SAM-I/IV (S-adenosyl methionine) riboswitch aptamer: a 111-nucleotide sequence from Pararobbsia silviterrae. On this family, see Trausch et al., PNAS 2014: "Structural basis for diversity in the SAM clan of riboswitches".
RNA sequence: CGCGGGCAUCCAGAGUCGGCAAGCGUGUUUGCCGACGCCAACCUGCCCUCCCGGCAAGGUGGCGGCCCUCAGCGGCGAUGCGGCCGAGCUUCGGCAACGAAACGGGAACAG
Numbered sequence: 001c002g003c004g005g006g007c008a009u010c011c012a013g014a015g016u017c018g019g020c021a022a023g024c025g026u027g028u029u030u031g032c033c034g035a036c037g038c039c040a041a042c043c044u045g046c047c048c049u050c051c052c053g054g055c056a057a058g059g060u061g062g063c064g065g066c067c068c069u070c071a072g073c074g075g076c077g078a079u080g081c082g083g084c085c086g087a088g089c090u091u092c093g094g095c096a097a098c099g100a101a102a103c104g105g106g107a108a109c110a111g
Stems, first nucleotide, its partner, number of pairs: 006081005015036009037063003042059003045055003049107004083095004